[Rfam]
TPP riboswitch aptamer (THI element): a 103-nucleotide sequence from Butyrivibrio sp. M55. Lineage of the source: Bacteria > Bacillati > Lachnospirales > Lachnospiraceae > Butyrivibrio. Pairs were carried over by alignment from the consensus structure, which is taken from published work. It scores 60 bits against the family's covariance model. Rfam's curators write: Vitamin B(1) in its active form thiamin pyrophosphate (TPP) is an essential coenzyme that is synthesised by coupling of pyrimidine and thiazole moieties in bacteria.
RNA sequence: UAAACAGACGGGAGCUUGUAUUACAGGCUGAGAGGAAGGUGUGACCUUCGACCGAGAACCUGAUUUGGAUAAUGCCAACGUAGGGAUGCCUUGUAGGAAUAGG
Numbered sequence: 001u002a003a004a005c006a007g008a009c010g011g012g013a014g015c016u017u018g019u020a021u022u023a024c025a026g027g028c029u030g031a032g033a034g035g036a037a038g039g040u041g042u043g044a045c046c047u048u049c050g051a052c053c054g055a056g057a058a059c060c061u062g063a064u065u066u067g068g069a070u071a072a073u074g075c076c077a078a079c080g081u082a083g084g085g086a087u088g089c090c091u092u093g094u095a096g097g098a099a100u101a102g103g
Stems, first nucleotide, its partner, number of pairs: 006091002009088002011052001014028005035049005059084004065078004